[Rfam]
Shown here is a 121-nucleotide sequence from Metabacillus litoralis, a member of the family "PyrR binding site". It scores 59 bits against the family's covariance model. It is annotated as a cis-regulatory element. From the family's description: This family represents the PyrR binding site and terminator structure. Lineage of the source: Bacteria > Bacillati > Bacillota > Caryophanales > Metabacillus. For this family Rfam cites "Molecular recognition of pyr mRNA by the Bacillus subtilis attenuation regulatory protein PyrR" (Bonner et al., Nucleic Acids Res, 2001).
RNA sequence: GAACCCUUUAAAGAAUAGUCCAGAGAGGCUACAAAGGGGAACAAAAAGGCUCAGGUCGCAGUAUGCGAAUGACGAUCUUUUUGUACCUCUUUGCACCUUUUUGCAAAGAGGUUUUUUGAUU
Numbered sequence: 001g002a003a004c005c006c007u008u009u010a011a012a013g014a015a016u017a018g019u020c021c022a023g024a025g026a027g028g029c030u031a032c033a034a035a036g037g038g039g040a041a042c043a044a045a046a047a048g049g050c051u052c053a054g055g056u057c058g059c060a061g062u063a064u065g066c067g068a069a070u071g072a073c074g075a076u077c078u079u080u081u082u083g084u085a086c087c088u089c090u091u092u093g094c095a096c097c098u099u100u101u102u103g104c105a106a107a108g109a110g111g112u113u114u115u116u117u118g119a120u121u
Base pairs, nucleotide, nucleotide: 004038005037006036007035008034009033016031017030018029019028020027046078048076050074054070056068057067058066059065083114085112086111087110088109089108090107091106092105093104094103